[Rfam]
RNA sequence: GGGGGCGAAAUGGCUUCGACGGAGAUUUUGAGGCCCAUGGUAGCAUACCGAGUUUUUUGUCAGCUCGUAAAAUUGGCAAAGCAUUAAACAUAAUCGCAGAUGAUUAUAAUUACGCUGUAGCUGCUUAAGGCAGCUUCCGUCCUCCUGAAAUCCUUCUUGCAGAUCUCAGGUCAGGGCGUCGACUUUGCAAGACCGCUUUUUAAGGGCGUCUGAACCUUAAAAGUUAAACUUUUCAGACUAUAUUGUUUUGUAUCCAUCUCAAAGGAGACAUUACAACAAAUAUAAAUUUUGAGAUAAGUAUGUAGAAGCCUAGGUUGAUUGUUUUCGGACGCGGGUUCAACUCCCGCCGCCUCCACCA
Numbered sequence: 001g002g003g004g005g006c007g008a009a010a011u012g013g014c015u016u017c018g019a020c021g022g023a024g025a026u027u028u029u030g031a032g033g034c035c036c037a038u039g040g041u042a043g044c045a046u047a048c049c050g051a052g053u054u055u056u057u058u059g060u061c062a063g064c065u066c067g068u069a070a071a072a073u074u075g076g077c078a079a080a081g082c083a084u085u086a087a088a089c090a091u092a093a094u095c096g097c098a099g100a101u102g103a104u105u106a107u108a109a110u111u112a113c114g115c116u117g118u119a120g121c122u123g124c125u126u127a128a129g130g131c132a133g134c135u136u137c138c139g140u141c142c143u144c145c146u147g148a149a150a151u152c153c154u155u156c157u158u159g160c161a162g163a164u165c166u167c168a169g170g171u172c173a174g175g176g177c178g179u180c181g182a183c184u185u186u187g188c189a190a191g192a193c194c195g196c197u198u199u200u201u202a203a204g205g206g207c208g209u210c211u212g213a214a215c216c217u218u219a220a221a222a223g224u225u226a227a228a229c230u231u232u233u234c235a236g237a238c239u240a241u242a243u244u245g246u247u248u249u250g251u252a253u254c255c256a257u258c259u260c261a262a263a264g265g266a267g268a269c270a271u272u273a274c275a276a277c278a279a280a281u282a283u284a285a286a287u288u289u290u291g292a293g294a295u296a297a298g299u300a301u302g303u304a305g306a307a308g309c310c311u312a313g314g315u316u317g318a319u320u321g322u323u324u325u326c327g328g329a330c331g332c333g334g335g336u337u338c339a340a341c342u343c344c345c346g347c348c349g350c351c352u353c354c355a356c357c358a
Stems, first nucleotide, its partner, number of pairs: 001354007020327007029318001032316004037311001039310003044302005049067005055081007117137001119135006138178006144170004150164003155192007197223007208239001211236001243276004249270003253266003259294002262289001263287001331347005
Dot-bracket structure: (((((((............(((((((..(..((((.(.(((..((((([[[[[.(((((((.]]]]].......)))))))...................................(.((((((.....)))))).)[[[[[[[[[[..[[[..(((((((]]]..]]]]..]]]]]].......)))))))....(((((((....[..[.....)))))))............]..]...((((..(((.(((...[[.[[))).)))..))))..........].]...]]...))))).....)))).)))).)..)))))))...(((((.......))))))))))))....
transfer-messenger RNA: a 358-nucleotide RNA from Desulfobacula toluolica. Rfam's curators write: Bacterial tmRNA, also known as 10Sa RNA or SsrA, is named for its dual tRNA and mRNA-like properties. Its role is to liberate the mRNA from a stalled ribosome. To accomplish this part of the tmRNA is used as a reading frame that ends in a translation stop signal. The broken mRNA is replaced in the ribosome by the tmRNA and translation of the tmRNA leads to addition of a proteolysis tag to the incomplete protein enabling recognition by a protease. It scores 192 bits against the family's covariance model. NCBI's taxonomy places the organism under Bacteria, Pseudomonadati, Desulfobacterales, Desulfobacula, Desulfobacula toluolica. On this family, see Williams and Bartel, RNA 1996: "Phylogenetic analysis of tmRNA secondary structure". Its Rfam clan is "tRNA clan". It is annotated as a non-coding RNA gene.